[Rfam]
RNA sequence: CCAAUGGCUCUGAGCUCCAGUUCCGGGCGAGACUCUGGGGACCCAGACUCAUUCGGGGAGAAACUGGACUGUCUGGCAGCAAGCGGA
Dot-bracket structure: ((..(.((((((.(((((((((((..(.(((..(((((....)))))))).)....)))...))))))..)).))).))).)..)).

mir-9230 microRNA precursor family: an 87-nucleotide sequence from Cnephaeus nilssonii. It scores 101 bits against the family's covariance model. The organism belongs to Cnephaeus, within Eukaryota. Its family is annotated with RISC complex and miRNA-mediated post-transcriptional gene silencing in the Gene Ontology.